[Rfam]
RNA sequence: CAGCAAUAUUAUCGCUGACAGUCCGGUUCAGGCCUGUCCCCCGCCAUUCCGGACAUGCACACGGCAGCCUCACCCCCCUCUCCGGGCUGUCGUGAAUGAUAAAAGGCCGCCGUGGCUUCCCUCCGCCACGGCGGCACUUU
Numbered sequence: 001c002a003g004c005a006a007u008a009u010u011a012u013c014g015c016u017g018a019c020a021g022u023c024c025g026g027u028u029c030a031g032g033c034c035u036g037u038c039c040c041c042c043g044c045c046a047u048u049c050c051g052g053a054c055a056u057g058c059a060c061a062c063g064g065c066a067g068c069c070u071c072a073c074c075c076c077c078c079u080c081u082c083c084g085g086g087c088u089g090u091c092g093u094g095a096a097u098g099a100u101a102a103a104a105g106g107c108c109g110c111c112g113u114g115g116c117u118u119c120c121c122u123c124c125g126c127c128a129c130g131g132c133g134g135c136a137c138u139u140u
Stems, first nucleotide, its partner, number of pairs: 021054006031045003060094010107134010

Annotation
Alphaproteobacterial sRNA ar7: a 140-nucleotide RNA from Nitratireductor basaltis. For this family Rfam cites "A survey of sRNA families in alpha-proteobacteria" (del Val et al., RNA Biol, 2012). The organism belongs to Nitratireductor, within Bacteria. It is annotated as a small RNA.